The record is a 153-nucleotide RNA sequence from Amborella trichopoda, which matches "MIR8565 microRNA precursor family" in Rfam. It scores 136 bits against the family's covariance model. Its family is annotated with miRNA-mediated post-transcriptional gene silencing and RISC complex in the Gene Ontology.
[Rfam]
RNA sequence: CCAACACCUAUGUAUGUAGGACCCCAAAUGAUCACCAUUAAAUUUGGCACAAAUCUCUAGAAAAAUUAUCACAUGGAUGUGAGACUUGACUUUCUAGAGAUCUGUGUCAAAUUUAAUAGUGAUCCUUUGGGGUCUUACACACAUGGAUGUGGG
Numbered sequence: 001c002c003a004a005c006a007c008c009u010a011u012g013u014a015u016g017u018a019g020g021a022c023c024c025c026a027a028a029u030g031a032u033c034a035c036c037a038u039u040a041a042a043u044u045u046g047g048c049a050c051a052a053a054u055c056u057c058u059a060g061a062a063a064a065a066u067u068a069u070c071a072c073a074u075g076g077a078u079g080u081g082a083g084a085c086u087u088g089a090c091u092u093u094c095u096a097g098a099g100a101u102c103u104g105u106g107u108c109a110a111a112u113u114u115a116a117u118a119g120u121g122a123u124c125c126u127u128u129g130g131g132g133u134c135u136u137a138c139a140c141a142c143a144u145g146g147a148u149g150u151g152g153g
Base pairs, nucleotide, nucleotide: 002152004150005149006148008146009145010144011143012142013141015139016138017137018136019135020134021133022132023131024130025129026128027127028126030124031123032122034120035119037117038116039115040114041113042112043111044110045109046108047107048106049105050104051103053101054100055099056098057097058096059095060094061093062092064091066089067088068087069082070081071080072079073078